A member of the RNA family "Small nucleolar RNA SNORD60" from Acipenser ruthenus, 83 nucleotides long. On this family, see Galardi et al., Mol Cell Biol 2002: "Purified box C/D snoRNPs are able to reproduce site-specific 2'-O-methylation of target RNA in vitro". A search with the family's covariance model found it, with a score of 67 bits. Pairs were carried over by alignment from the consensus structure, which was predicted with PFOLD. Its family is annotated with RNA processing and nucleolus in the Gene Ontology. It is annotated as a C/D-box small nucleolar RNA.
RNA sequence: UGCCGGUGAUGAUUUAACAUUUCUGACACCUCGUAUGAGUGCUGCUAAUGCAGUACUUGAUUACAGUUUUGAAUCUGAGGCAU
Numbered sequence: 001u002g003c004c005g006g007u008g009a010u011g012a013u014u015u016a017a018c019a020u021u022u023c024u025g026a027c028a029c030c031u032c033g034u035a036u037g038a039g040u041g042c043u044g045c046u047a048a049u050g051c052a053g054u055a056c057u058u059g060a061u062u063a064c065a066g067u068u069u070u071g072a073a074u075c076u077g078a079g080g081c082a083u
Base pairs, nucleotide, nucleotide: 001082002081003080004079041054042053043052044051045050